[Rfam]
RNA sequence: GUCAGAUGAUUUGAAUUGAUACACUGAUAACUCCGUGAAGGUGUGAAUUUAUUAUAGCAUGUUAGAGUUCUGAUGGCA
Numbered sequence: 001g002u003c004a005g006a007u008g009a010u011u012u013g014a015a016u017u018g019a020u021a022c023a024c025u026g027a028u029a030a031c032u033c034c035g036u037g038a039a040g041g042u043g044u045g046a047a048u049u050u051a052u053u054a055u056a057g058c059a060u061g062u063u064a065g066a067g068u069u070c071u072g073a074u075g076g077c078a
Base pairs, nucleotide, nucleotide: 001077002076003075004074
This 78-nucleotide RNA from Rattus norvegicus belongs to the Rfam family "Small nucleolar RNA SNORD28". The base pairs follow the family's consensus structure, which was predicted with PFOLD. Rfam 15.1 lists 229 matches to the family in 149 species. By type it is a C/D-box small nucleolar RNA. The source organism's lineage runs through Eukaryota, Gnathostomata, Teleostomi, Murinae and Rattus.